[Rfam]
RNA: SAM riboswitch aptamer (S box leader)
Organism: Andreesenella acetica
RNA sequence: CUCUUAUUUAGAGUGGUGGAGGGACUGGCCCGAUGAAACCCGGCAACCGGCACAGUAUGUGCAGUGGUGCUAAAUCCUGCAGCAAAGCUGAGAGAUAAGAG
Dot-bracket structure: ((((((((....(.(((...(((.[.[[)))......))))((((.((.(((.......)))...))))))...(]].]((((...))))..)))))))))
Numbered sequence: 001c002u003c004u005u006a007u008u009u010a011g012a013g014u015g016g017u018g019g020a021g022g023g024a025c026u027g028g029c030c031c032g033a034u035g036a037a038a039c040c041c042g043g044c045a046a047c048c049g050g051c052a053c054a055g056u057a058u059g060u061g062c063a064g065u066g067g068u069g070c071u072a073a074a075u076c077c078u079g080c081a082g083c084a085a086a087g088c089u090g091a092g093a094g095a096u097a098a099g100a101g
Stems, first nucleotide, its partner, number of pairs: 001101008013041001015040003021031003025079001027077002042071004047067002050062003075093001080090004